[Rfam]
This 79-nucleotide RNA sequence from Mesocricetus auratus belongs to the Rfam family "Small nucleolar RNA SNORD115". The match comes from Rfam's covariance-model search (57 bits). A reference for the family is Cavaille et al. (2000), "Identification of brain-specific and imprinted small nucleolar RNA genes exhibiting an unusual genomic organization", Proc Natl Acad Sci U S A.

RNA sequence: GGGUCUAUGAUGACAAACCUACUUCCUGAAGAGAGGUGAUGACAUAAAAAUCAAUCUCGGGUUGUGGUUGCUGAGGCCC
Dot-bracket structure: (((((..((((.......................................................))))..)..))))
Numbered sequence: 001g002g003g004u005c006u007a008u009g010a011u012g013a014c015a016a017a018c019c020u021a022c023u024u025c026c027u028g029a030a031g032a033g034a035g036g037u038g039a040u041g042a043c044a045u046a047a048a049a050a051u052c053a054a055u056c057u058c059g060g061g062u063u064g065u066g067g068u069u070g071c072u073g074a075g076g077c078c079c
Stems, first nucleotide, its partner, number of pairs: 001079004005073001008070004